This 45-nucleotide sequence from Parafrankia flexibilis belongs to the Rfam family "Guanidine-II riboswitch aptamer (mini-ykkC)".
RNA sequence: AGGCCGGGCCCCCGGCCGCUCAGCCCUCGAUGGGGGACGACCCCA
Numbered sequence: 001a002g003g004c005c006g007g008g009c010c011c012c013c014g015g016c017c018g019c020u021c022a023g024c025c026c027u028c029g030a031u032g033g034g035g036g037a038c039g040a041c042c043c044c045a
Base pairs, nucleotide, nucleotide: 002017003016004015005014006013007012033044034043035042036041
It scores 33 bits against the family's covariance model.